Shown here is a 118-nucleotide RNA from Bucorvus abyssinicus, a member of the family "Small nucleolar RNA SNORA61". ACA61 is a member of the H/ACA class of snoRNA that guide the sites of modification of uridines to pseudouridines. Gene Ontology terms of the family: nucleolus and RNA processing. The family has 25 seed sequences and 881 matches in Rfam 15.1.
[Rfam]
RNA sequence: UCCCUCCAGAUCCCUUUCCCAUCAGAUCUGAACACCGAUCUCAUGGUCGAAAACGGAGGAAGAGUAAAAUUCAAACUGGUCUUGGGCUCUUUGCUGGUGCUGUCCGGCUCCGAGAGGG
Numbered sequence: 001u002c003c004c005u006c007c008a009g010a011u012c013c014c015u016u017u018c019c020c021a022u023c024a025g026a027u028c029u030g031a032a033c034a035c036c037g038a039u040c041u042c043a044u045g046g047u048c049g050a051a052a053a054c055g056g057a058g059g060a061a062g063a064g065u066a067a068a069a070u071u072c073a074a075a076c077u078g079g080u081c082u083u084g085g086g087c088u089c090u091u092u093g094c095u096g097g098u099g100c101u102g103u104c105c106g107g108c109u110c111c112g113a114g115a116g117g118g
Base pairs, nucleotide, nucleotide: 003059004058005057006056007055019046020045021044022043025040026039027038028037076107077106078105079104081102